Rfam assigns this 54-nucleotide RNA sequence from Megalops atlanticus to the family "UnaL2 LINE 3' element".

[Rfam]
Nucleotides: 054
Stems, first nucleotide, its partner, number of pairs: 013043001014041003021035005
Number, partner (000 for none) and nucleotide at each position: 001000a002000a003000u004000g005000g006000a007000u008000a009000a010000c011000a012000u013043u014041g015040u016039a017000a018000g019000u020000c021035g022034c023033u024032c025031u026000g027000g028000a029000u030000a031025a032024g033023a034022g035021c036000a037000u038000c039016u040015g041014c042000u043013a044000a045000a046000u047000g048000c049000c050000a051000g052000u053000a054000a